[Rfam]
RNA: Bacterial RNase P class A
Organism: Marivirga atlantica
Nucleotides: 405
Base pairs, nucleotide, nucleotide: 001401002400003399004398005397006396007395008394009393010392011390012353013352014351015350016349017348018347020048021047022046023045024044026042027041028040053388054387055386057385058384059383060382061381062239063238064237065236070312071311072310074235075234076233077232078231079094080093081092082091083090095114096112097111098110099109100108101107102106115230116229120228121227122224123223137169138168139165140164141163142162143161144160145159146158177195178194179193180192181191182190196219197217198216199215201214202213203212204211205210243334244333245332246331254324255323256322257321258320305317306316307315
Number, partner (000 for none) and nucleotide at each position: 001401a002400u003399u004398g005397c006396a007395a008394g009393c010392u011390g012353u013352c014351u015350u016349a017348u018347c019000g020048u021047g022046c023045u024044g025000g026042u027041c028040c029000c030000g031000a032000u033000a034000g035000c036000u037000a038000u039000c040028g041027g042026g043000a044024c045023a046022g047021u048020a049000a050000g051000g052000a053388a054387a055386g056000u057385c058384c059383g060382g061381g062239c063238a064237a065236c066000a067000u068000a069000g070312a071311g072310u073000g074235c075234c076233g077232u078231a079094c080093c081092u082091u083090g084000g085000g086000a087000a088000a089000c090083c091082a092081a093080g094079g095114g096112u097111g098110a099109u100108g101107a102106u103000u104000a105000u106102a107101u108100c109099a110098u111097u112096a113000a114095c115230a116229g117000a118000a119000a120228g121227u122224g123223c124000a125000a126000c127000a128000g129000a130000a131000a132000a133000c134000a135000a136000g137169u138168a139165g140164c141163c142162c143161a144160g145159g146158c147000a148000a149000g150000u151000u152000u153000a154000c155000u156000u157000c158146g159145u160144c161143u162142g163141g164140g165139u166000c167000a168138u169137a170000g171000u172000g173000a174000a175000a176000a177195g178194g179193u180192g181191c182190g183000g184000u185000a186000a187000g188000a189000g190182c191181g192180c193179a194178c195177c196219g197217u198216g199215u200000u201214u202213g203212g204211c205210g206000g207000u208000a209000a210205c211204g212203u213202c214201a215199g216198c217197a218000g219196c220000u221000a222000g223123g224122u225000a226000a227121a228120c229116c230115u231078u232077g233076c234075g235074g236065g237064u238063u239062g240000u241000a242000a243334g244333g245332c246331c247000a248000c249000a250000u251000a252000c253000a254324u255323u256322u257321u258320u259000g260000c261000u262000c263000c264000c265000g266000a267000u268000c269000g270000c271000u272000a273000u274000c275000g276000g277000g278000a279000u280000a281000a282000g283000u284000g285000u286000u287000a288000c289000u290000c291000g292000c293000a294000c295000u296000a297000a298000a299000u300000c301000a302000c303000a304000g305317u306316u307315u308000u309000g310072g311071c312070u313000g314000u315307g316306a317305a318000g319000u320258a321257a322256a323255a324254a325000g326000g327000g328000g329000u330000a331246g332245g333244c334243u335000g336000c337000a338000u339000a340000g341000a342000u343000a344000a345000a346000u347018g348017a349016u350015a351014a352013g353012a354000g355000c356000c357000u358000u359000g360000a361000u362000a363000a364000u365000u366000a367000u368000c369000a370000g371000g372000g373000a374000u375000a376000c377000a378000g379000a380000a381061c382060c383059u384058g385057g386055c387054u388053u389000a390011u391000a392010g393009g394008c395007u396006u397005g398004c399003a400002a401001u402000u403000a404000u405000u